[Rfam]
RNA sequence: UGUCCAUGAUGAUAACUUUAAGGCUUGUUUCUCAAAACAUUCGCAGUGGCCGCCAAAGAGUUUUCGCCUUUGCCAGGCUUGAGAGCUAAUGCAGCUUUAUCCUUCCUUGGAUGUCUGAGGCA
Numbered sequence: 001u002g003u004c005c006a007u008g009a010u011g012a013u014a015a016c017u018u019u020a021a022g023g024c025u026u027g028u029u030u031c032u033c034a035a036a037a038c039a040u041u042c043g044c045a046g047u048g049g050c051c052g053c054c055a056a057a058g059a060g061u062u063u064u065c066g067c068c069u070u071u072g073c074c075a076g077g078c079u080u081g082a083g084a085g086c087u088a089a090u091g092c093a094g095c096u097u098u099a100u101c102c103u104u105c106c107u108u109g110g111a112u113g114u115c116u117g118a119g120g121c122a
Stems, first nucleotide, its partner, number of pairs: 001122004060086006
Notes
The record is a 122-nucleotide RNA from Cannabis sativa, which matches "Small nucleolar RNA SNORD14" in Rfam. The base pairs follow the family's consensus structure, which was predicted with PFOLD. The family has 18 seed sequences and 4,559 matches in Rfam 15.1. NCBI's taxonomy places the organism under Eukaryota, Streptophyta, Mesangiospermae, Cannabaceae, Cannabis.